This 134-nucleotide RNA from Silurus meridionalis belongs to the Rfam family "Small nucleolar RNA SNORA68". Its family is annotated with nucleolus and RNA processing in the Gene Ontology.

RNA sequence: GGCGCACGCAAACCCAAAGGUCAUCAACUUCCCACGUGUGAUGACCUACGCUACACGUGCGCAAAGAAACCAGAGCCUUGUCGCCUUUUAUCGGCCACAUGUGCCAAUAGAAGUGAAUUCAAGGUCCGACAUUG
Numbered sequence: 001g002g003c004g005c006a007c008g009c010a011a012a013c014c015c016a017a018a019g020g021u022c023a024u025c026a027a028c029u030u031c032c033c034a035c036g037u038g039u040g041a042u043g044a045c046c047u048a049c050g051c052u053a054c055a056c057g058u059g060c061g062c063a064a065a066g067a068a069a070c071c072a073g074a075g076c077c078u079u080g081u082c083g084c085c086u087u088u089u090a091u092c093g094g095c096c097a098c099a100u101g102u103g104c105c106a107a108u109a110g111a112a113g114u115g116a117a118u119u120c121a122a123g124g125u126c127c128g129a130c131a132u133u134g
Stems, first nucleotide, its partner, number of pairs: 002062007019046008073127001075125005085113007093105003

The match comes from Rfam's covariance-model search (62 bits). A reference for the family is Ganot et al. (1997), "The family of box ACA small nucleolar RNAs is defined by an evolutionarily conserved secondary structure and ubiquitous sequence elements essential for RNA accumulation", Genes Dev. U68 is a member of the H/ACA class of small nucleolar RNAs (snoRNAs) which act as guides in the the modification of uridines to pseudouridines. The family's RNA type in Rfam is H/ACA-box small nucleolar RNA.